[Rfam]
RNA: FMN riboswitch aptamer (RFN element)
RNA sequence: ACACGUUCUCAGGGCGGGGUGGAAGUCCCCACCGGCGGUAAGAGCAAAAGCUUAAGCCCGCGAGCGCCUUUUCGGUUUUCCGGAAAGGGUCAGCAGAUCCGGUGUGAUUCCGGAGCCGACGGUCAUAGUCCGGAUGGAAGAGAACGGAA
Numbered sequence: 001a002c003a004c005g006u007u008c009u010c011a012g013g014g015c016g017g018g019g020u021g022g023a024a025g026u027c028c029c030c031a032c033c034g035g036c037g038g039u040a041a042g043a044g045c046a047a048a049a050g051c052u053u054a055a056g057c058c059c060g061c062g063a064g065c066g067c068c069u070u071u072u073c074g075g076u077u078u079u080c081c082g083g084a085a086a087g088g089g090u091c092a093g094c095a096g097a098u099c100c101g102g103u104g105u106g107a108u109u110c111c112g113g114a115g116c117c118g119a120c121g122g123u124c125a126u127a128g129u130c131c132g133g134a135u136g137g138a139a140g141a142g143a144a145c146g147g148a149a
Stems, first nucleotide, its partner, number of pairs: 004146007017029003031129002033118002035061004056116002064094002098114005120132003
Dot-bracket structure: ...(((((((......(((.......))).[[((((((.................[[))))..((...........................))...(((((.......)))))]])).(((.....]]))).......)))))))...